[Rfam]
RNA: Ribosomal protein L10 leader
Organism: Lachnospiraceae bacterium TWA4
RNA sequence: ACGAAACGAUCAGCACCGCCGAAGACAGCAGGUGCCGUAUGGCGUAAGGUGUAACGCCUGCCGAGACGAUUUUAAGGAAUGCCUUAUAUACCUCUCUGUCUUUGGAUAGAGAGGUUUUGUUUAUAUACA
Numbered sequence: 001a002c003g004a005a006a007c008g009a010u011c012a013g014c015a016c017c018g019c020c021g022a023a024g025a026c027a028g029c030a031g032g033u034g035c036c037g038u039a040u041g042g043c044g045u046a047a048g049g050u051g052u053a054a055c056g057c058c059u060g061c062c063g064a065g066a067c068g069a070u071u072u073u074a075a076g077g078a079a080u081g082c083c084u085u086a087u088a089u090a091c092c093u094c095u096c097u098g099u100c101u102u103u104g105g106a107u108a109g110a111g112a113g114g115u116u117u118u119g120u121u122u123a124u125a126u127a128c129a
Base pairs, nucleotide, nucleotide: 028061029060030059031058032057033056034043035042036041091114092113093112094111095110096109097108098107099106100105